Notes: This 75-nucleotide sequence from Crocodylus porosus belongs to the Rfam family "Mammalian CPEB3 ribozyme". NCBI's taxonomy places the organism under Eukaryota, Deuterostomia, Dipnotetrapodomorpha, Sauropsida, Crocodylus. A search with the family's covariance model found it, with a score of 48 bits. The base pairs follow the family's consensus structure, which is taken from published work.
RNA sequence: AACUGCCAUAACGGCCAUAACAGAAGCGCUCAUGUCACGGCCCUGUCAGAUUCCAGUGGAUCUAAGAAUUCUGCU
Numbered sequence: 001a002a003c004u005g006c007c008a009u010a011a012c013g014g015c016c017a018u019a020a021c022a023g024a025a026g027c028g029c030u031c032a033u034g035u036c037a038c039g040g041c042c043c044u045g046u047c048a049g050a051u052u053c054c055a056g057u058g059g060a061u062c063u064a065a066g067a068a069u070u071c072u073g074c075u
Stems, first nucleotide, its partner, number of pairs: 013042004019075001021073005026038001028036001048063006